[Rfam]
RNA sequence: GGUGCUGAAACGAAUAAACCUCAUAUAAUAGUAGGGAUAUGGCCUACGAGUUUCUACCCAAUUACCGUAAAUGAUUGGACUAUGAGGGAAAGUACGGUUUAU
Numbered sequence: 001g002g003u004g005c006u007g008a009a010a011c012g013a014a015u016a017a018a019c020c021u022c023a024u025a026u027a028a029u030a031g032u033a034g035g036g037a038u039a040u041g042g043c044c045u046a047c048g049a050g051u052u053u054c055u056a057c058c059c060a061a062u063u064a065c066c067g068u069a070a071a072u073g074a075u076u077g078g079a080c081u082a083u084g085a086g087g088g089a090a091a092g093u094a095c096g097g098u099u100u101a102u
Stems, first nucleotide, its partner, number of pairs: 019087007029049001031047005058078007
Overview:
Purine riboswitch aptamer: a 102-nucleotide RNA sequence from Priestia koreensis. The family's consensus secondary structure is taken from published work. Taxonomically the source falls in Priestia (Bacteria, Bacillati, Bacillota, Bacilli). A search with the family's covariance model found it, with a score of 85 bits.